[Rfam]
RNA sequence: UGAUGCCAAGGUCAUAAGGUCAUGUAUGACAUAGAAGCAUGUCAAUGCAUGACUUUGGAACCCGCAAAACACCGAAAAACUGUCAUUUUUCCCAGGAAAAUGAGGGGAUUUGAGGCGCCUUCGGAUUGCGGAAGCAUGAAAUGCGGAGCAAUCCCUUGGCAUCA
Numbered sequence: 001u002g003a004u005g006c007c008a009a010g011g012u013c014a015u016a017a018g019g020u021c022a023u024g025u026a027u028g029a030c031a032u033a034g035a036a037g038c039a040u041g042u043c044a045a046u047g048c049a050u051g052a053c054u055u056u057g058g059a060a061c062c063c064g065c066a067a068a069a070c071a072c073c074g075a076a077a078a079a080c081u082g083u084c085a086u087u088u089u090u091c092c093c094a095g096g097a098a099a100a101u102g103a104g105g106g107g108a109u110u111u112g113a114g115g116c117g118c119c120u121u122c123g124g125a126u127u128g129c130g131g132a133a134g135c136a137u138g139a140a141a142u143g144c145g146g147a148g149c150a151a152u153c154c155c156u157u158g159g160c161a162u163c164a
Stems, first nucleotide, its partner, number of pairs: 001164007010062003016056012029042004066121002070117001072115002076111003083103009123154007134144004
Dot-bracket structure: (((((((..(((...((((((((((((.((((......))))..))))))))))))...)))...((..(.((..(((....(((((((((...))))))))).....)))..)).)..)).(((((((....((((...))))...)))))))...)))))))
Rfam assigns this 164-nucleotide RNA from bacterium 1XD42-8 to the family "Clostridiales-1 RNA".